[Rfam]
RNA sequence: AGCCGUGAGGUAAGCGCAAAGCGAACUAUUCUUUCGCCUUUUACUAAAGAAUACCGUGCGCUUGCCUCAUUCAACGGCAUACUCUAAUUUUUGGAGGGUCCGAACCUAUUGGGUUU
Numbered sequence: 001a002g003c004c005g006u007g008a009g010g011u012a013a014g015c016g017c018a019a020a021g022c023g024a025a026c027u028a029u030u031c032u033u034u035c036g037c038c039u040u041u042u043a044c045u046a047a048a049g050a051a052u053a054c055c056g057u058g059c060g061c062u063u064g065c066c067u068c069a070u071u072c073a074a075c076g077g078c079a080u081a082c083u084c085u086a087a088u089u090u091u092u093g094g095a096g097g098g099u100c101c102g103a104a105c106c107u108a109u110u111g112g113g114u115u116u
Base pairs, nucleotide, nucleotide: 003077004076005075006074008067009066010065011064012063013062014061015060016059017058018057027053028052029051030050031049032048033047034046095116097115098114099113100112101111102110
Rfam assigns this 116-nucleotide RNA from Sesamum indicum to the family "U5 spliceosomal RNA".
Rfam classes the family as a spliceosomal small nuclear RNA.
Its family is annotated with U5 snRNP and spliceosomal tri-snRNP complex assembly in the Gene Ontology.